[Rfam]
RNA sequence: UUCGUCGGCGGCAGCGUGAUGCGGCGCCAGCAUCAGAAGGGCCAAAAGGAGCGCCCGGCGGAUCCGGCCGGGCGGGAAAAGAAAGCGCGUCGAUGAAAAGCCGGCUGGCCCAGGAAAGCGCAUGGCGUGAAGUAUGGCCGAUA
Numbered sequence: 001u002u003c004g005u006c007g008g009c010g011g012c013a014g015c016g017u018g019a020u021g022c023g024g025c026g027c028c029a030g031c032a033u034c035a036g037a038a039g040g041g042c043c044a045a046a047a048g049g050a051g052c053g054c055c056c057g058g059c060g061g062a063u064c065c066g067g068c069c070g071g072g073c074g075g076g077a078a079a080a081g082a083a084a085g086c087g088c089g090u091c092g093a094u095g096a097a098a099a100g101c102c103g104g105c106u107g108g109c110c111c112a113g114g115a116a117a118g119c120g121c122a123u124g125g126c127g128u129g130a131a132g133u134a135u136g137g138c139c140g141a142u143a
Base pairs, nucleotide, nucleotide: 003074004073005072006071010069011068012067014063022061023055024054025053026052027051087138088137100109101108102107118128119127120126121125
The record is a 143-nucleotide RNA sequence from Mesorhizobium ciceri, which matches "Mesorhizobail RNA 10" in Rfam. About the family: Existence predicted via genome wide comparisons with 4 related strains. Analysed further by deep sequencing and Northern blot under various stress conditions. Exhibited 2 bands. It is one of the family's seed sequences. NCBI's taxonomy places the organism under Bacteria, Pseudomonadota, Hyphomicrobiales, Mesorhizobium ciceri, Mesorhizobium ciceri biovar biserrulae. Pairs were carried over by alignment from the consensus structure, which was predicted with R-scape. Rfam classes the family as a small RNA. A reference for the family is Fuli et al. (2017), "A Genome-Wide Prediction and Identification of Intergenic Small RNAs by Comparative Analysis in Mesorhizobium huakuii 7653R", Front Microbiol.